Annotation
Shown here is a 110-nucleotide RNA sequence from Ancistrocladus tectorius, a member of the family "Plastid-psbA-1 3UTR RNA". It is one of the family's seed sequences. Rfam's curators write: Plastid psbA-1 is a non-coding RNA (ncRNA) present in plastids. It was identified in inverted repeat sequences in the 3 prime untranslate region (3UTR) of photosystem II quinone-binding protein (psbA). The source organism's lineage runs through Eukaryota, Viridiplantae, Streptophyta, Mesangiospermae and Ancistrocladus. The base pairs follow the family's consensus structure, which was predicted with LocARNA.

RNA sequence: UCGAAGCUCCAUCUAGAAAUGGAUAAGACUUCGAUGUAUAUGAGUGAUUGACAGUAAAGGAGCAAUACCAAUUUCUUGUUUUAUCAAGAGGAUUGGUAUUGCUUCUUUAU
Numbered sequence: 001u002c003g004a005a006g007c008u009c010c011a012u013c014u015a016g017a018a019a020u021g022g023a024u025a026a027g028a029c030u031u032c033g034a035u036g037u038a039u040a041u042g043a044g045u046g047a048u049u050g051a052c053a054g055u056a057a058a059g060g061a062g063c064a065a066u067a068c069c070a071a072u073u074u075c076u077u078g079u080u081u082u083a084u085c086a087a088g089a090g091g092a093u094u095g096g097u098a099u100u101g102c103u104u105c106u107u108u109a110u
Base pairs, nucleotide, nucleotide: 008023009022010021011020012019056108057107058106059105060104061103062102063101064100065099066098067097068096070093073090074089075088076087077086